Rfam assigns this 46-nucleotide sequence from Crocuta crocuta to the family "Histone 3' UTR stem-loop". Pairs were carried over by alignment from the consensus structure, which is taken from published work. Rfam classes the family as a cis-regulatory element.

RNA sequence: CCAAAGGCUCUUUUCAGAGCCACCACUAGCUCACAAAGAGUGCUGU
Numbered sequence: 001c002c003a004a005a006g007g008c009u010c011u012u013u014u015c016a017g018a019g020c021c022a023c024c025a026c027u028a029g030c031u032c033a034c035a036a037a038g039a040g041u042g043c044u045g046u
Stems, first nucleotide, its partner, number of pairs: 006021006